About this RNA: A member of the RNA family "Small nucleolar RNA snoR111" from Rhododendron williamsianum, 127 nucleotides long.
RNA sequence: GAAACUGAAGAACAGAACACCCCGUCUGUUUCUUCAAACACAGCAGAAGGUACAGAAAUGAUUAUGGCGAGAUAUCGUUUCAGUCAUCACCCUUCAAAUUGAUGAUUCGAUUGUUGCUUGUCCAUAC
Numbered sequence: 001g002a003a004a005c006u007g008a009a010g011a012a013c014a015g016a017a018c019a020c021c022c023c024g025u026c027u028g029u030u031u032c033u034u035c036a037a038a039c040a041c042a043g044c045a046g047a048a049g050g051u052a053c054a055g056a057a058a059u060g061a062u063u064a065u066g067g068c069g070a071g072a073u074a075u076c077g078u079u080u081c082a083g084u085c086a087u088c089a090c091c092c093u094u095c096a097a098a099u100u101g102a103u104g105a106u107u108c109g110a111u112u113g114u115u116g117c118u119u120g121u122c123c124a125u126a127c
Stems, first nucleotide, its partner, number of pairs: 006036006013028004066123002069119003074111004083106007

The literature on the family includes a 2002 paper in Curr Biol by Marker et al., "Experimental RNomics: identification of 140 candidates for small non-messenger RNAs in the plant Arabidopsis thaliana". The family's consensus secondary structure was predicted with WAR. The source organism's lineage runs through Eukaryota, Spermatophyta, Ericales, Ericaceae and Rhododendron. A search with the family's covariance model found it, with a score of 66 bits.